[Rfam]
RNA sequence: AUUCGAAAAAGGCAAACUAGGCGAAAGUCUAGGACGCAAAGCCAUGGGUCUAAGGUUUCUAUCAAACUACGACAGCCGGGUUACCGAA
Numbered sequence: 001a002u003u004c005g006a007a008a009a010a011g012g013c014a015a016a017c018u019a020g021g022c023g024a025a026a027g028u029c030u031a032g033g034a035c036g037c038a039a040a041g042c043c044a045u046g047g048g049u050c051u052a053a054g055g056u057u058u059c060u061a062u063c064a065a066a067c068u069a070c071g072a073c074a075g076c077c078g079g080g081u082u083a084c085c086g087a088a
Stems, first nucleotide, its partner, number of pairs: 012037002017032006040082004045078003048073003055067004